[Rfam]
Notes:
Rfam assigns this 98-nucleotide RNA from Protea cynaroides to the family "MIR2275 microRNA precursor family".
RNA sequence: AAAUUGAAAGUGAGAAUUGGAGGACGCUAAACUGGAAGCUUUGAUGAAGUUUGAUUAGGGAAUCAGUUUAGUUUCCUCCAAUAUCUCACCUUCAAUUA
Numbered sequence: 001a002a003a004u005u006g007a008a009a010g011u012g013a014g015a016a017u018u019g020g021a022g023g024a025c026g027c028u029a030a031a032c033u034g035g036a037a038g039c040u041u042u043g044a045u046g047a048a049g050u051u052u053g054a055u056u057a058g059g060g061a062a063u064c065a066g067u068u069u070a071g072u073u074u075c076c077u078c079c080a081a082u083a084u085c086u087c088a089c090c091u092u093c094a095a096u097u098a
Base pairs, nucleotide, nucleotide: 004095005094006093007092008091011088012087013086014085016082017081018080019079020078021077023075024074026072027071028070029069030068032066033065034064035063
It scores 71 bits against the family's covariance model. Rfam 15.1 lists 785 matches to the family in 111 species.